[Rfam]
RNA sequence: AAGACAACCCUAUGGAGCAGGACUUGCUUCAGUGGGGCUUUGGUACUCACUGAGUCUUUUCCUUAAGUGUGUCCGU
Numbered sequence: 001a002a003g004a005c006a007a008c009c010c011u012a013u014g015g016a017g018c019a020g021g022a023c024u025u026g027c028u029u030c031a032g033u034g035g036g037g038c039u040u041u042g043g044u045a046c047u048c049a050c051u052g053a054g055u056c057u058u059u060u061c062c063u064u065a066a067g068u069g070u071g072u073c074c075g076u
Stems, first nucleotide, its partner, number of pairs: 003073004009067001011065002014062004019057001021056003029053008037044002
A member of the RNA family "mir-9229 microRNA precursor family" from Myotis myotis, 76 nucleotides long. A search with the family's covariance model found it, with a score of 77 bits.